[Rfam]
RNA sequence: GCCAAAUGAUGUCACUUGGAUGGCAUGAGCACUCUGUGCAAAGAUGACCUUCAUCUAUCACUCAAAGCUGAUGGCU
Dot-bracket structure: ((((........................((((...))))................................)))).

Background:
Rfam assigns this 76-nucleotide RNA from Nothoprocta perdicaria to the family "Small nucleolar RNA SNORD83". Pairs were carried over by alignment from the consensus structure, which was predicted with PFOLD. A reference for the family is Jady and Kiss (2000), "Characterisation of the U83 and U84 small nucleolar RNAs: two novel 2'-O-ribose methylation guide RNAs that lack complementarities to ribosomal RNAs", Nucleic Acids Res. The source organism's lineage runs through Eukaryota, Bilateria, Sauropsida, Aves and Nothoprocta.